[Rfam]
The record is a 74-nucleotide RNA sequence from Alligator mississippiensis, which matches "Mammalian CPEB3 ribozyme" in Rfam. Pairs were carried over by alignment from the consensus structure, which is taken from published work. The source organism's lineage runs through Eukaryota, Bilateria, Craniata, Euteleostomi and Alligator. The literature on the family includes a 2006 paper in Science by Salehi-Ashtiani et al., "A genomewide search for ribozymes reveals an HDV-like sequence in the human CPEB3 gene".

RNA sequence: UUGCAAGUUCAAGGCCAUAGCAGAAGCACACAAGGCGUGGCCUGUCAGAUUCUAAUAAAUCUGCAAAUUCAGUC
Numbered sequence: 001u002u003g004c005a006a007g008u009u010c011a012a013g014g015c016c017a018u019a020g021c022a023g024a025a026g027c028a029c030a031c032a033a034g035g036c037g038u039g040g041c042c043u044g045u046c047a048g049a050u051u052c053u054a055a056u057a058a059a060u061c062u063g064c065a066a067a068u069u070c071a072g073u074c
Stems, first nucleotide, its partner, number of pairs: 013042004020073002023070003026038002046063006